[Rfam]
RNA: RAGATH-5 RNA
Organism: Faecalibacterium prausnitzii
RNA sequence: UGGGAUACCCUAGCAGGGCCGCACCCCAGAAAAGCGGCCCCGCCCCACACCCGG
Numbered sequence: 001u002g003g004g005a006u007a008c009c010c011u012a013g014c015a016g017g018g019c020c021g022c023a024c025c026c027c028a029g030a031a032a033a034g035c036g037g038c039c040c041c042g043c044c045c046c047a048c049a050c051c052c053g054g
Stems, first nucleotide, its partner, number of pairs: 002026003013043001016040003020036003